[Rfam]
RNA sequence: AUGUGAUCUGUGGGUUUCCCUUUGUCAUCCUGUGCCUGGAGCAGUCUUAAGGCAGGGAAAGCAGAUGGGGGCUCAGUGGUCACAUCU
Numbered sequence: 001a002u003g004u005g006a007u008c009u010g011u012g013g014g015u016u017u018c019c020c021u022u023u024g025u026c027a028u029c030c031u032g033u034g035c036c037u038g039g040a041g042c043a044g045u046c047u048u049a050a051g052g053c054a055g056g057g058a059a060a061g062c063a064g065a066u067g068g069g070g071g072c073u074c075a076g077u078g079g080u081c082a083c084a085u086c087u
Stems, first nucleotide, its partner, number of pairs: 017069003021065002024062002028058004034053004

This 87-nucleotide sequence from Mola mola belongs to the Rfam family "mir-204 microRNA precursor family". The match comes from Rfam's covariance-model search (71 bits). The literature on the family includes a 2008 paper in Genome Res by Murchison et al., "Conservation of small RNA pathways in platypus". Taxonomically the source falls in Mola (Eukaryota, Teleostomi, Euteleostomi, Eurypterygia). Its family is annotated with RISC complex and miRNA-mediated post-transcriptional gene silencing in the Gene Ontology. Rfam 15.1 lists 1,730 matches to the family in 644 species.